[Rfam]
Nucleotides: 370
Stems, first nucleotide, its partner, number of pairs: 001366010011355001012320007020040001022038006045353003049350005054215004061249003066211005071085005086101001088099004102206002107203004122149002124145009157175006177197001178195007219277004230267005241253004284303008
Number, partner (000 for none) and nucleotide at each position: 001366a002365c003364a004363g005362g006361a007360g008359g009358c010357c011355g012320g013319u014318c015317u016316g017315c018314c019000g020040c021000g022038u023037g024036c025035g026034u027033c028000c029000c030000a031000g032000u033027g034026g035025c036024g037023c038022a039000g040020g041000a042000g043000g044000a045353a046352a047351g048000u049350c050349c051348g052347g053346g054215c055214a056213a057212c058000a059000c060000a061249g062248g063247g064000c065000a066211a067210u068209c069208c070207g071085c072084u073083u074082c075081c076000u077000a078000a079000c080000g081075g082074g083073a084072a085071g086101u087000c088099g089098u090097c091096c092000g093000c094000a095000a096091g097090g098089g099088u100000g101086a102206g103205c104000g105000a106000a107203g108202g109201c110200a111000g112000a113000a114000g115000a116000a117000a118000a119000c120000a121000a122149c123148c124145g125144c126143c127142g128141g129140c130139g131138c132137c133000a134000c135000a136000c137132g138131g139130c140129g141128u142127c143126g144125g145124u146000a147000a148123g149122g150000g151000u152000g153000a154000g155000a156000a157175g158174g159173u160172g161171g162170g163000g164000u165000a166000a167000g168000a169000g170162c171161c172160c173159a174158c175157c176000g177197g178195c179194u180193g181192c182191a183190u184189g185000g186000c187000g188000a189184c190183a191182u192181g193180c194179a195178g196000g197177c198000c199000g200110u201109g202108c203107c204000u205103g206102c207070c208069g209068g210067a211066u212057g213056u214055u215054g216000a217000a218000a219277g220276u221275u222274c223000a224000u225000g226000u227000a228000a229000a230267c231266c232265g233264g234263c235000g236000a237000c238000u239000g240000a241253g242252g243251g244250u245000g246000a247063c248062c249061c250244g251243c252242c253241c254000g255000a256000g257000c258000a259000a260000u261000g262000c263234g264233c265232c266231g267230g268000a269000g270000g271000g272000u273000a274222g275221a276220a277219c278000g279000a280000u281000a282000g283000a284303g285302c286301c287300u288299g289298u290297c291296g292000g293000c294000g295000a296291c297290g298289g299288c300287a301286g302285g303284c304000c305000c306000g307000g308000a309000u310000a311000a312000a313000u314018g315017g316016c317015a318014g319013a320012c321000a322000c323000c324000g325000u326000c327000c328000a329000a330000u331000a332000c333000g334000g335000g336000c337000g338000g339000u340000a341000c342000a343000g344000a345000a346053c347052c348051c349050g350049g351047c352046u353045u354000a355011c356000a357010g358009g359008c360007c361006u362005c363004c364003u365002g366001u367000c368000c369000u370000u
Shown here is a 370-nucleotide RNA from Prevotella sp. CAG:755, a member of the family "Bacterial RNase P class A". The source organism's lineage runs through Bacteria, Bacteroidota, Bacteroidales, Prevotellaceae and Prevotella. The base pairs follow the family's consensus structure, which is taken from published work.